[Rfam]
A member of the RNA family "Small nucleolar RNA Z112" from Panicum virgatum, 188 nucleotides long.
RNA sequence: GUCUUCAAUAAAAUACUAGCCUAACAAUUACAGCUUCAAGAAAACACUGUUACCAGCAGCAGCUUCUCUCAUCUGCAGGUGUCCAUACUGAAUCCAUAACCUUUGUGGUUUGGUCUGGGGAGGAUUUCCCAUAUGCAGAUGUUUGAUUCAAAUGUGGUGAGUGGUUUAAAUUGGGUCUCUUGAGGGAU
Numbered sequence: 001g002u003c004u005u006c007a008a009u010a011a012a013a014u015a016c017u018a019g020c021c022u023a024a025c026a027a028u029u030a031c032a033g034c035u036u037c038a039a040g041a042a043a044a045c046a047c048u049g050u051u052a053c054c055a056g057c058a059g060c061a062g063c064u065u066c067u068c069u070c071a072u073c074u075g076c077a078g079g080u081g082u083c084c085a086u087a088c089u090g091a092a093u094c095c096a097u098a099a100c101c102u103u104u105g106u107g108g109u110u111u112g113g114u115c116u117g118g119g120g121a122g123g124a125u126u127u128c129c130c131a132u133a134u135g136c137a138g139a140u141g142u143u144u145g146a147u148u149c150a151a152a153u154g155u156g157g158u159g160a161g162u163g164g165u166u167u168a169a170a171u172u173g174g175g176u177c178u179c180u181u182g183a184g185g186g187a188u
Base pairs, nucleotide, nucleotide: 001188002187003186004185005184073138074137075136076135077134079132080131081130082124083123084122086120088118094113095112096111098110099109100108101107

The family has 6 seed sequences and 427 matches in Rfam 15.1. The match comes from Rfam's covariance-model search (98 bits). NCBI's taxonomy places the organism under Eukaryota, Liliopsida, Poaceae, Panicoideae, Panicum sect. Hiantes. Its Rfam clan is "SNORD49 clan".